[Rfam]
RNA sequence: CAGCAGGAGUCAGUCCUGUUAGGGUAAGAAUCAGAGGCCCUAUAGCUUGGAUGGCAGGUAUGAGGGAAACCGAUUAUCUGAAGCCCAUCGACAAAGCAAUCCAUAGGGAUGUGAGCGAGUCACCGGGCCAUAACGAGA
Numbered sequence: 001c002a003g004c005a006g007g008a009g010u011c012a013g014u015c016c017u018g019u020u021a022g023g024g025u026a027a028g029a030a031u032c033a034g035a036g037g038c039c040c041u042a043u044a045g046c047u048u049g050g051a052u053g054g055c056a057g058g059u060a061u062g063a064g065g066g067a068a069a070c071c072g073a074u075u076a077u078c079u080g081a082a083g084c085c086c087a088u089c090g091a092c093a094a095a096g097c098a099a100u101c102c103a104u105a106g107g108g109a110u111g112u113g114a115g116c117g118a119g120u121c122a123c124c125g126g127g128c129c130a131u132a133a134c135g136a137g138a
Base pairs, nucleotide, nucleotide: 020042021041022040023039024038050089051088052087053086054085055080056079057078058077059076060075064071065070096112097111098110100108101107115131117129

The family of this 138-nucleotide RNA sequence from Desulforhopalus singaporensis is "Group II catalytic intron D1-D4-4". On this family, see Bonen and Vogel, Trends Genet 2001: "The ins and outs of group II introns". The match comes from Rfam's covariance-model search (112 bits).